[Rfam]
The family of this 103-nucleotide RNA sequence from Sporomusa acidovorans is "SAM riboswitch aptamer (S box leader)". It scores 79 bits against the family's covariance model. Its family is annotated with regulation of gene expression in the Gene Ontology. Pairs were carried over by alignment from the consensus structure, which is taken from published work.
RNA sequence: UGUUCAUCAAGAGCUGGCUGAGGGACUGGCCCAAUGACGCCGCGGCAACCAUCGCACAUGCGAACGGUGCCAAUUCCACAGGAGUAAUCCUGGCAGAUGAAGA
Numbered sequence: 001u002g003u004u005c006a007u008c009a010a011g012a013g014c015u016g017g018c019u020g021a022g023g024g025a026c027u028g029g030c031c032c033a034a035u036g037a038c039g040c041c042g043c044g045g046c047a048a049c050c051a052u053c054g055c056a057c058a059u060g061c062g063a064a065c066g067g068u069g070c071c072a073a074u075u076c077c078a079c080a081g082g083a084g085u086a087a088u089c090c091u092g093g094c095a096g097a098u099g100a101a102g103a
Stems, first nucleotide, its partner, number of pairs: 001103001003101006013043001015042004022032003027078003044071004049067002052063004075095001079092005